The family of this 137-nucleotide RNA from Pseudomonas brassicacearum is "Pseudomonas sRNA P11". By type it is a non-coding RNA gene. Rfam's curators put it in the seed alignment.
[Rfam]
RNA sequence: CUUCGCGCCAGUUGGCACAACCACUGCAUAAUCCCUUUCAACAGACAUAAGGCAACGCCUCCAACGAUGAAGGCGGUGCUUCCCGAGAGAACGGGACCAGGACAAAGGCGUCCUCGCUAGCUUGCUAGCGGGACGCC
Numbered sequence: 001c002u003u004c005g006c007g008c009c010a011g012u013u014g015g016c017a018c019a020a021c022c023a024c025u026g027c028a029u030a031a032u033c034c035c036u037u038u039c040a041a042c043a044g045a046c047a048u049a050a051g052g053c054a055a056c057g058c059c060u061c062c063a064a065c066g067a068u069g070a071a072g073g074c075g076g077u078g079c080u081u082c083c084c085g086a087g088a089g090a091a092c093g094g095g096a097c098c099a100g101g102a103c104a105a106a107g108g109c110g111u112c113c114u115c116g117c118u119a120g121c122u123u124g125c126u127a128g129c130g131g132g133a134c135g136c137c
Stems, first nucleotide, its partner, number of pairs: 012105003015027003052079003056075001058073002062069001081096005107137007115130006
This small RNA (sRNA) was computationally identified in the genome of the opportunistic pathogen Pseudomonas aeruginosa and its expression verified by northern blot analysis. P11 is located between a putative threonine protein kinase and putative nitrate reductase and appears to be conserved in several Pseudomonas species. P11 has a predicted Rho independent terminator at the 3'end but the function of P11 is unknown.